Bacterial RNase P class A: a 350-nucleotide RNA sequence from Rhodobacterales bacterium HTCC2255.

RNA sequence: GCGGAUGGCUGGGCGGCCGCGCGAAAGCGAGGAAAGUCCGGACUCUUUACAGCAAUGGCGGCGGGUAACACCCGCCUGGGGUAACCCAAGGGAAAGCGCCACAGAAAAUAAACCGCUCACUAAACGUGAGUAAGGGUGAAACGGUAGGGUAAGAGCCUACCGCAGUAUUGGUAACAAUAUUGGCAUGGCAAGCCCCGUCAGGAGCAAAACCAAGUAGGAACCGCGUGCCCUUAUGGGCGGGGUCGCUGAAGCCCCAGCAGGUUCGGGUGGUUGCUAGAGCAUUAUGGUAACAUAAUGCGCAGAUGAAUGGUCGCUCACGACAAAAUCCGGCUUAUAGGCCAUCCGCAUUG
Numbered sequence: 001g002c003g004g005a006u007g008g009c010u011g012g013g014c015g016g017c018c019g020c021g022c023g024a025a026a027g028c029g030a031g032g033a034a035a036g037u038c039c040g041g042a043c044u045c046u047u048u049a050c051a052g053c054a055a056u057g058g059c060g061g062c063g064g065g066u067a068a069c070a071c072c073c074g075c076c077u078g079g080g081g082u083a084a085c086c087c088a089a090g091g092g093a094a095a096g097c098g099c100c101a102c103a104g105a106a107a108a109u110a111a112a113c114c115g116c117u118c119a120c121u122a123a124a125c126g127u128g129a130g131u132a133a134g135g136g137u138g139a140a141a142c143g144g145u146a147g148g149g150u151a152a153g154a155g156c157c158u159a160c161c162g163c164a165g166u167a168u169u170g171g172u173a174a175c176a177a178u179a180u181u182g183g184c185a186u187g188g189c190a191a192g193c194c195c196c197g198u199c200a201g202g203a204g205c206a207a208a209a210c211c212a213a214g215u216a217g218g219a220a221c222c223g224c225g226u227g228c229c230c231u232u233a234u235g236g237g238c239g240g241g242g243u244c245g246c247u248g249a250a251g252c253c254c255c256a257g258c259a260g261g262u263u264c265g266g267g268u269g270g271u272u273g274c275u276a277g278a279g280c281a282u283u284a285u286g287g288u289a290a291c292a293u294a295a296u297g298c299g300c301a302g303a304u305g306a307a308u309g310g311u312c313g314c315u316c317a318c319g320a321c322a323a324a325a326u327c328c329g330g331c332u333u334a335u336a337g338g339c340c341a342u343c344c345g346c347a348u349u350g
Stems, first nucleotide, its partner, number of pairs: 001346010011335001012315007020029003034333003038330005043204004052247001056200005061075005076090001077088004091195002096193002098189003113135002115131006143161006162184001163182008208272004218264005239255005279298008

About this RNA:
Taxonomically the source falls in Rhodobacterales (Bacteria, Pseudomonadati, Pseudomonadota, Alphaproteobacteria).